MIR394 microRNA precursor family: a 109-nucleotide RNA from Brassica oleracea. For this family Rfam cites "Computational identification of plant microRNAs and their targets, including a stress-induced miRNA" (Jones-Rhoades and Bartel, Mol Cell, 2004). The source organism's lineage runs through Eukaryota, Euphyllophyta, malvids, Brassica and Brassica oleracea.
RNA sequence: CUUACAGAUUUCUUUGGCAUUCUGUCCACCUCCUUUUGUAUAUAAAUGUAUGUAUAUCGGUUGUGUGUGAAAGAAGGAGGUGGUCAUACUGCCAGUAGACAUCUGUUAG
Numbered sequence: 001c002u003u004a005c006a007g008a009u010u011u012c013u014u015u016g017g018c019a020u021u022c023u024g025u026c027c028a029c030c031u032c033c034u035u036u037u038g039u040a041u042a043u044a045a046a047u048g049u050a051u052g053u054a055u056a057u058c059g060g061u062u063g064u065g066u067g068u069g070a071a072a073g074a075a076g077g078a079g080g081u082g083g084u085c086a087u088a089c090u091g092c093c094a095g096u097a098g099a100c101a102u103c104u105g106u107u108a109g
Base pairs, nucleotide, nucleotide: 011099014095015094016093017092018091019090023086024085026083027082028081029080030079031078032077033076034075035074036073